The family of this 101-nucleotide sequence from Thiothrix eikelboomii is "TPP riboswitch aptamer (THI element)". Rfam describes the family as follows. Vitamin B(1) in its active form thiamin pyrophosphate (TPP) is an essential coenzyme that is synthesised by coupling of pyrimidine and thiazole moieties in bacteria. Its family is annotated with thiamine pyrophosphate binding in the Gene Ontology. NCBI's taxonomy places the organism under Bacteria, Pseudomonadati, Pseudomonadota, Gammaproteobacteria, Thiothrix. The match comes from Rfam's covariance-model search (78 bits).

RNA sequence: UCCGCGCUCUCGGGGUGUCCUUCUGGACUGAGAUGCUAUCCAGCAAACCCGUAGAACCUGAUCCGGCUCAUACCGGCGUAGGGAAGAGAACUUGCCUUCUA
Numbered sequence: 001u002c003c004g005c006g007c008u009c010u011c012g013g014g015g016u017g018u019c020c021u022u023c024u025g026g027a028c029u030g031a032g033a034u035g036c037u038a039u040c041c042a043g044c045a046a047a048c049c050c051g052u053a054g055a056a057c058c059u060g061a062u063c064c065g066g067c068u069c070a071u072a073c074c075g076g077c078g079u080a081g082g083g084a085a086g087a088g089a090a091c092u093u094g095c096c097u098u099c100u101a
Stems, first nucleotide, its partner, number of pairs: 007088004011051004016045001017028004035044003057082004063076004